[Rfam]
RNA sequence: UUUGUCUGAGGUGAGAAAUUUUGCCACCCACUCACACACUGAGUCCGUAAAAGGCCAGUCAAGGUAGAUGCAGGGCGUGGUGGACCUGCCAGACAAA
Numbered sequence: 001u002u003u004g005u006c007u008g009a010g011g012u013g014a015g016a017a018a019u020u021u022u023g024c025c026a027c028c029c030a031c032u033c034a035c036a037c038a039c040u041g042a043g044u045c046c047g048u049a050a051a052a053g054g055c056c057a058g059u060c061a062a063g064g065u066a067g068a069u070g071c072a073g074g075g076c077g078u079g080g081u082g083g084a085c086c087u088g089c090c091a092g093a094c095a096a097a
Stems, first nucleotide, its partner, number of pairs: 001097008011035005024083005038059004070089005
RNA: skipping-rope RNA